About this RNA
Rfam assigns this 46-nucleotide RNA to the family "ssNA-helicase RNA". It is annotated as a small RNA. It is one of the family's seed sequences.

RNA sequence: UUGCAUAAGGCAAGUAUUACCUUAUGCAAGGGUGUAGCAAGUAGCA
Number, nucleotide and partner (000 for none) at each position: 001u029002u028003g027004c026005a025006u024007a023008a022009g021010g020011c000012a000013a000014g000015u000016a000017u000018u000019a000020c010021c009022u008023u007024a006025u005026g004027c003028a002029a001030g000031g000032g000033u000034g000035u000036a000037g000038c000039a000040a000041g000042u000043a000044g000045c000046a000